[Rfam]
RNA sequence: AUGUACUACGCGACCACGGCGGCUCCUGAGCGCUGCCCGCGGCAGUUGGCGAUUGCGCGCUGCGUGUUGUCAGCU
Numbered sequence: 001a002u003g004u005a006c007u008a009c010g011c012g013a014c015c016a017c018g019g020c021g022g023c024u025c026c027u028g029a030g031c032g033c034u035g036c037c038c039g040c041g042g043c044a045g046u047u048g049g050c051g052a053u054u055g056c057g058c059g060c061u062g063c064g065u066g067u068u069g070u071c072a073g074c075u
Base pairs, nucleotide, nucleotide: 002016003015006012020035021034022033023032025030046073047072048071049070050069051068052067